A member of the RNA family "FMN riboswitch aptamer (RFN element)" from bacterium 1XD42-8, 142 nucleotides long.
The family's consensus secondary structure is taken from published work.
The match comes from Rfam's covariance-model search (111 bits).

RNA sequence: UGAUGUCUUCAGGGCAGGGUGAAAUUCCCGACCGGCGGUAUAGUCCGCGAGCGCGCAUGCGCAGGGCCUGGCAACGAAAGCCAGGACAGGAUUUGGUGCAAUUCCAAAACCGACAGUAAAGUCUGGAUGAAAGAAGAUGUGA
Numbered sequence: 001u002g003a004u005g006u007c008u009u010c011a012g013g014g015c016a017g018g019g020u021g022a023a024a025u026u027c028c029c030g031a032c033c034g035g036c037g038g039u040a041u042a043g044u045c046c047g048c049g050a051g052c053g054c055g056c057a058u059g060c061g062c063a064g065g066g067c068c069u070g071g072c073a074a075c076g077a078a079a080g081c082c083a084g085g086a087c088a089g090g091a092u093u094u095g096g097u098g099c100a101a102u103u104c105c106a107a108a109a110c111c112g113a114c115a116g117u118a119a120a121g122u123c124u125g126g127a128u129g130a131a132a133g134a135a136g137a138u139g140u141g142a
Stems, first nucleotide, its partner, number of pairs: 003140008017029003031122002033112002035048004043110002092108005114125003